The record is a 131-nucleotide RNA from Otolemur garnettii, which matches "Small nucleolar RNA SNORA13" in Rfam. NCBI's taxonomy places the organism under Eukaryota, Amniota, Mammalia, Eutheria, Otolemur. ACA13 is a member of the H/ACA class of snoRNA that guide the sites of modification of uridines to pseudouridines. The match comes from Rfam's covariance-model search (117 bits). The base pairs follow the family's consensus structure, which was predicted with CMfinder.
[Rfam]
RNA sequence: AUCCUUUGUGUUGCCCAUUCACUUUGGAACUAGUAGAUGUGGUGUCAAAAAGGUGUGAAUUAAACACUUUGCAGCCUUUUCCUGCCCUUAAAUUUGAUAUUUUUGGGGCAGGGGCUGCAUAAGUAACAGUU
Numbered sequence: 001a002u003c004c005u006u007u008g009u010g011u012u013g014c015c016c017a018u019u020c021a022c023u024u025u026g027g028a029a030c031u032a033g034u035a036g037a038u039g040u041g042g043u044g045u046c047a048a049a050a051a052g053g054u055g056u057g058a059a060u061u062a063a064a065c066a067c068u069u070u071g072c073a074g075c076c077u078u079u080u081c082c083u084g085c086c087c088u089u090a091a092a093u094u095u096g097a098u099a100u101u102u103u104u105g106g107g108g109c110a111g112g113g114g115c116u117g118c119a120u121a122a123g124u125a126a127c128a129g130u131u
Base pairs, nucleotide, nucleotide: 003053004052005051006050007049009047010046012044013043014042015041016039017038018037019036021034022033023032066124067123068122069121070119071118072117073116074115075114080113081112082111083110084109085108086106087105090101091100